[Rfam]
RNA sequence: UGAUCCAUUGAAUUUUUUUAAUCAGGGAAAUCAUAGUCGAGGAUUUAUGAUAUUCAUCUCACUUCCUACAUAUUUCUCUACUAUGUUUCUCUGAUUAAAGAAAUUUGUUGGAUCA
Numbered sequence: 001u002g003a004u005c006c007a008u009u010g011a012a013u014u015u016u017u018u019u020a021a022u023c024a025g026g027g028a029a030a031u032c033a034u035a036g037u038c039g040a041g042g043a044u045u046u047a048u049g050a051u052a053u054u055c056a057u058c059u060c061a062c063u064u065c066c067u068a069c070a071u072a073u074u075u076c077u078c079u080a081c082u083a084u085g086u087u088u089c090u091c092u093g094a095u096u097a098a099a100g101a102a103a104u105u106u107g108u109u110g111g112a113u114c115a
Stems, first nucleotide, its partner, number of pairs: 001115007011105003016100015032085006039078003
A member of the RNA family "MIR1509 microRNA precursor family" from Lathyrus oleraceus, 115 nucleotides long. Its family is annotated with RISC complex and miRNA-mediated post-transcriptional gene silencing in the Gene Ontology. The organism belongs to Lathyrus, within Eukaryota. A search with the family's covariance model found it, with a score of 97 bits.